[Rfam]
Notes: The family of this 348-nucleotide RNA sequence from Enterococcus columbae is "Group I catalytic intron".

RNA sequence: UGAUUGCCUUGCAUAUUCUGUGAGGAAUAUGUACUCCACGUUAAUUGCUUUGACCCCCUAAAGCCAAUUCACCCAAACAGUGAUUGGAAACGAUGAGCUGAGCGGUACGAAAGUAGAAAAAACGAAUUGGAUGGCAUAUGAAAAAGUGGAUCUUUUUCUAAGUGCUUUAAUCAAAUGGGUAUUUAGCAGGGACUGCCCUAAGUAGGUUGGCUUGACCUAUAAGGGAAACCUUCAACGACUAUCUCCUAGUGGGAGAGUAAAGCCGUAAGCGAAUGACGGAAGAAAAAUGUGGCACUUACGUAUGGACGUAAGUUGAAGAAAUAGUCUCAACUCUUAUGAAAGUAAGAG
Numbered sequence: 001u002g003a004u005u006g007c008c009u010u011g012c013a014u015a016u017u018c019u020g021u022g023a024g025g026a027a028u029a030u031g032u033a034c035u036c037c038a039c040g041u042u043a044a045u046u047g048c049u050u051u052g053a054c055c056c057c058c059u060a061a062a063g064c065c066a067a068u069u070c071a072c073c074c075a076a077a078c079a080g081u082g083a084u085u086g087g088a089a090a091c092g093a094u095g096a097g098c099u100g101a102g103c104g105g106u107a108c109g110a111a112a113g114u115a116g117a118a119a120a121a122a123c124g125a126a127u128u129g130g131a132u133g134g135c136a137u138a139u140g141a142a143a144a145a146g147u148g149g150a151u152c153u154u155u156u157u158c159u160a161a162g163u164g165c166u167u168u169a170a171u172c173a174a175a176u177g178g179g180u181a182u183u184u185a186g187c188a189g190g191g192a193c194u195g196c197c198c199u200a201a202g203u204a205g206g207u208u209g210g211c212u213u214g215a216c217c218u219a220u221a222a223g224g225g226a227a228a229c230c231u232u233c234a235a236c237g238a239c240u241a242u243c244u245c246c247u248a249g250u251g252g253g254a255g256a257g258u259a260a261a262g263c264c265g266u267a268a269g270c271g272a273a274u275g276a277c278g279g280a281a282g283a284a285a286a287a288u289g290u291g292g293c294a295c296u297u298a299c300g301u302a303u304g305g306a307c308g309u310a311a312g313u314u315g316a317a318g319a320a321a322u323a324g325u326c327u328c329a330a331c332u333c334u335u336a337u338g339a340a341a342g343u344a345a346g347a348g
Stems, first nucleotide, its partner, number of pairs: 016026003036292004041287002046188004056179003189231002196225003203219005235327001237326005294313008333346005
It scores 58 bits against the family's covariance model.